The record is a 109-nucleotide RNA from Bacillus sp. T33-2, which matches "PyrR binding site" in Rfam. This family represents the PyrR binding site and terminator structure.
RNA sequence: AACCCUUUUAAAAUAGUCCAGAGAGGCUGAAAAAGCGGGGAAAAGCAAAGCGAUAUUGUUUUGCAUGCCAAAAACCCUCUUUGUGCCUUUCACAAAGAGGGUUUUUUUU
Numbered sequence: 001a002a003c004c005c006u007u008u009u010a011a012a013a014u015a016g017u018c019c020a021g022a023g024a025g026g027c028u029g030a031a032a033a034a035g036c037g038g039g040g041a042a043a044a045g046c047a048a049a050g051c052g053a054u055a056u057u058g059u060u061u062u063g064c065a066u067g068c069c070a071a072a073a074a075c076c077c078u079c080u081u082u083g084u085g086c087c088u089u090u091c092a093c094a095a096a097g098a099g100g101g102u103u104u105u106u107u108u109u
Base pairs, nucleotide, nucleotide: 003037005035006034007033008032009031014029015028016027017026018025040069043066045064046063047062048061049060050059051058052057071105072104073103074102075101076100077099078098079097080096081095082094083093084092

By type it is a cis-regulatory element. The source organism's lineage runs through Bacteria, Bacilli, Caryophanales, Bacillaceae and Bacillus. Its family is annotated with pyrimidine nucleobase transport and pyrimidine nucleobase biosynthetic process in the Gene Ontology.